The family of this 62-nucleotide RNA sequence from Carya illinoinensis is "Plastid-psbA-2 3UTR RNA". Its Rfam clan is "Plastid-psbA 3UTR RNA clan". Lineage of the source: Eukaryota > Viridiplantae > Spermatophyta > Gunneridae > Carya. About the family: Plastid psbA-2 is a non-coding RNA (ncRNA) present in plastids. It was identified in inverted repeat sequences in the 3 prime untranslate region (3UTR) of photosystem II quinone-binding protein (psbA).
RNA sequence: AUAAAGGAGCAAUAAUCAACUUCUUGUUCUAUCAAGAGGAUUGGUAUUGCUCCUUUAUUUUG
Numbered sequence: 001a002u003a004a005a006g007g008a009g010c011a012a013u014a015a016u017c018a019a020c021u022u023c024u025u026g027u028u029c030u031a032u033c034a035a036g037a038g039g040a041u042u043g044g045u046a047u048u049g050c051u052c053c054u055u056u057a058u059u060u061u062g
Base pairs, nucleotide, nucleotide: 001058002057003056004055005054006053007052008051009050010049011048012047013046014045017043018042019041022037023036024035025034026033

For this family Rfam cites "Retrograde signaling in plants: A critical review focusing on the GUN pathway and beyond" (Richter et al., Plant Commun, 2023).